Annotation: The record is a 379-nucleotide part of an RNA from uncultured Nitrospirae bacterium MY3-5B, which matches "Bacterial large subunit ribosomal RNA" in Rfam. Rfam 15.1 lists 51,934 matches to the family in 10,816 species. Lineage of the source: Bacteria > Pseudomonadati > Nitrospirota.

[Rfam]
RNA sequence: GCAAAGACUGAUGGGAAGUCAGUCCGCCGUAAACCUAAGGUUUCCUGGGGAAGGUAAAUCCGCCCAGGGUUAGUCGGUCCUAAGAUGAGGCCGCAAGGCGUAAUCGAUGGACAGCAGGUUAAUAUUCCUGCACCACCAUGUAGUCGUUGAUCCUAGGGGUGACGCAGAAGGAUAGUUCGAGCCCGGUGAUGGUUCGGGUCCAAGCGUUUAGGCUGGUGAGUAGGCAAAUCCGCUCACCGUUAAAGCUGAGGCGUGAUGGGGAGUCCGUAAGGGCGAACUCGGGUGAUUCCACGCUGACAAGAAAAACCUCGAGAGGAGAUUACAAGGUGACCGUACCGCAAACCAACAAAGGUAGGUGGGUAGAAGAUACCUAGGCGUU
Numbered sequence: 001g002c003a004a005a006g007a008c009u010g011a012u013g014g015g016a017a018g019u020c021a022g023u024c025c026g027c028c029g030u031a032a033a034c035c036u037a038a039g040g041u042u043u044c045c046u047g048g049g050g051a052a053g054g055u056a057a058a059u060c061c062g063c064c065c066a067g068g069g070u071u072a073g074u075c076g077g078u079c080c081u082a083a084g085a086u087g088a089g090g091c092c093g094c095a096a097g098g099c100g101u102a103a104u105c106g107a108u109g110g111a112c113a114g115c116a117g118g119u120u121a122a123u124a125u126u127c128c129u130g131c132a133c134c135a136c137c138a139u140g141u142a143g144u145c146g147u148u149g150a151u152c153c154u155a156g157g158g159g160u161g162a163c164g165c166a167g168a169a170g171g172a173u174a175g176u177u178c179g180a181g182c183c184c185g186g187u188g189a190u191g192g193u194u195c196g197g198g199u200c201c202a203a204g205c206g207u208u209u210a211g212g213c214u215g216g217u218g219a220g221u222a223g224g225c226a227a228a229u230c231c232g233c234u235c236a237c238c239g240u241u242a243a244a245g246c247u248g249a250g251g252c253g254u255g256a257u258g259g260g261g262a263g264u265c266c267g268u269a270a271g272g273g274c275g276a277a278c279u280c281g282g283g284u285g286a287u288u289c290c291a292c293g294c295u296g297a298c299a300a301g302a303a304a305a306a307c308c309u310c311g312a313g314a315g316g317a318g319a320u321u322a323c324a325a326g327g328u329g330a331c332c333g334u335a336c337c338g339c340a341a342a343c344c345a346a347c348a349a350a351g352g353u354a355g356g357u358g359g360g361u362a363g364a365a366g367a368u369a370c371c372u373a374g375g376c377g378u379u
Stems, first nucleotide, its partner, number of pairs: 006024006025377004033357004039337002044068006053061002075333004079110002084105003088101001090099003114131005134329004139324006151315001156310005165296003170290003175284005181199006200259002204254004211247003215238007223231002263274004343352002359371004